This 84-nucleotide sequence from Methylibium petroleiphilum belongs to the Rfam family "tRNA". A search with the family's covariance model found it, with a score of 54 bits.
[Rfam]
RNA sequence: GCGCGGGUGGCGAAAUUGGUAGACGCACCAGGUUUAGGUCCUGACGCCCGCAAGGGUGUGCGGGUUCGAGUCCCGCCCCGCGCA
Number, nucleotide and partner (000 for none) at each position: 001g083002c082003g081004c080005g079006g078007g077008u000009g000010g026011c025012g024013a000014a000015a000016u000017u000018g000019g000020u000021a000022g000023a000024c012025g011026c010027a000028c000029c043030a042031g041032g040033u000034u000035u000036a000037g000038g000039u000040c032041c031042u030043g029044a000045c000046g000047c000048c000049c000050g000051c000052a000053a000054g000055g000056g000057u000058g000059u000060g076061c075062g074063g073064g072065u000066u000067c000068g000069a000070g000071u000072c064073c063074c062075g061076c060077c007078c006079c005080g004081c003082g002083c001084a000